A member of the RNA family "FuFi-1 RNA" from Hungateiclostridiaceae bacterium KB18, 263 nucleotides long. NCBI's taxonomy places the organism under Bacteria, Bacillati, Bacillota, Eubacteriales, Oscillospiraceae.
[Rfam]
RNA sequence: GGCGUCAUGCGUAAGGGGCAAUAGCUGAACCGAAACUGCUAAAGUGAAACGGCGCGUCAUAGAAGCAUGUGGCUUUUGCAUGUGAAGAUUCAUCGACACCGGCAUAUGUACUGGUUCCGCCCAGAUCAAAAGGGGUAUGCCACUGAUGGCCAAACGAGUGUGCUCGGCAAAAACAUACGCCAUCAGGAUGAAAGCCCUGCAACGUGUUCUGGUAACAAAAUUCGGAGUAGUCGCAUCUGUAAAAAGCCUACAGAUGCGAUUUG
Numbered sequence: 001g002g003c004g005u006c007a008u009g010c011g012u013a014a015g016g017g018g019c020a021a022u023a024g025c026u027g028a029a030c031c032g033a034a035a036c037u038g039c040u041a042a043a044g045u046g047a048a049a050c051g052g053c054g055c056g057u058c059a060u061a062g063a064a065g066c067a068u069g070u071g072g073c074u075u076u077u078g079c080a081u082g083u084g085a086a087g088a089u090u091c092a093u094c095g096a097c098a099c100c101g102g103c104a105u106a107u108g109u110a111c112u113g114g115u116u117c118c119g120c121c122c123a124g125a126u127c128a129a130a131a132g133g134g135g136u137a138u139g140c141c142a143c144u145g146a147u148g149g150c151c152a153a154a155c156g157a158g159u160g161u162g163c164u165c166g167g168c169a170a171a172a173a174c175a176u177a178c179g180c181c182a183u184c185a186g187g188a189u190g191a192a193a194g195c196c197c198u199g200c201a202a203c204g205u206g207u208u209c210u211g212g213u214a215a216c217a218a219a220a221u222u223c224g225g226a227g228u229a230g231u232c233g234c235a236u237c238u239g240u241a242a243a244a245a246g247c248c249u250a251c252a253g254a255u256g257c258g259a260u261u262u263g
Stems, first nucleotide, its partner, number of pairs: 002050001005047003023040003027036001030225005052207006065083006071248007084197001089192006229261013